RNA sequence: CCAGCCGAAACAUGUCGAAGCAUGACCUCAGCCGAGAUAGUCUGCGAGGUAGAGCGACCGAUUGGAAGACCCGCCUCCGAGAGGAGUCGGCCUUCCUGUCGAACUCCAAACUUGCAGACGUCGUAGACGCUGGGAAUCCGGACUGCGGGGUAAGCUUGUGGUCCGUGAGGGAGACAACCCAGAGCCGGGUUAAGGUCCCCAAGUGUGGAUUAAGUGCGAUCGAAGAUUGUCUCGAGCCCUAAACAGCCGGGAGGUGAGCUUAGAAGCAGCUACCCUCUAAGAAAAGCGUAACAGCUUACCGGCCGAGGUUCGAGGCGUCGAAAAUGAUCGGGGCUCAAAUCCACCACCGAGACCUGGCAGCAGGCGACACCAUACGCCUGACCUAGUAGGCUGGCAUACUGUGCGGGUGGAAGCUCGGGCGAGAGCUCGCGUGGACCGCUCAGUAACGAAAAU
Numbered sequence: 001c002c003a004g005c006c007g008a009a010a011c012a013u014g015u016c017g018a019a020g021c022a023u024g025a026c027c028u029c030a031g032c033c034g035a036g037a038u039a040g041u042c043u044g045c046g047a048g049g050u051a052g053a054g055c056g057a058c059c060g061a062u063u064g065g066a067a068g069a070c071c072c073g074c075c076u077c078c079g080a081g082a083g084g085a086g087u088c089g090g091c092c093u094u095c096c097u098g099u100c101g102a103a104c105u106c107c108a109a110a111c112u113u114g115c116a117g118a119c120g121u122c123g124u125a126g127a128c129g130c131u132g133g134g135a136a137u138c139c140g141g142a143c144u145g146c147g148g149g150g151u152a153a154g155c156u157u158g159u160g161g162u163c164c165g166u167g168a169g170g171g172a173g174a175c176a177a178c179c180c181a182g183a184g185c186c187g188g189g190u191u192a193a194g195g196u197c198c199c200c201a202a203g204u205g206u207g208g209a210u211u212a213a214g215u216g217c218g219a220u221c222g223a224a225g226a227u228u229g230u231c232u233c234g235a236g237c238c239c240u241a242a243a244c245a246g247c248c249g250g251g252a253g254g255u256g257a258g259c260u261u262a263g264a265a266g267c268a269g270c271u272a273c274c275c276u277c278u279a280a281g282a283a284a285a286g287c288g289u290a291a292c293a294g295c296u297u298a299c300c301g302g303c304c305g306a307g308g309u310u311c312g313a314g315g316c317g318u319c320g321a322a323a324a325u326g327a328u329c330g331g332g333g334c335u336c337a338a339a340u341c342c343a344c345c346a347c348c349g350a351g352a353c354c355u356g357g358c359a360g361c362a363g364g365c366g367a368c369a370c371c372a373u374a375c376g377c378c379u380g381a382c383c384u385a386g387u388a389g390g391c392u393g394g395c396a397u398a399c400u401g402u403g404c405g406g407g408u409g410g411a412a413g414c415u416c417g418g419g420c421g422a423g424a425g426c427u428c429g430c431g432u433g434g435a436c437c438g439c440u441c442a443g444u445a446a447c448g449a450a451a452a453u
Stems, first nucleotide, its partner, number of pairs: 001394006011024005027134006036122003040119008052107001053105002060100003064096005073088001075086004140164009169180003184358007194348003203345001205344006225319003229316010246303005252276003257271003277281001282297001286295002359384002361380005395448001397445005403439004413432002416429005
RNA: Archaeal large subunit ribosomal RNA, nucleotides 903 to 1355
Organism: Halogeometricum borinquense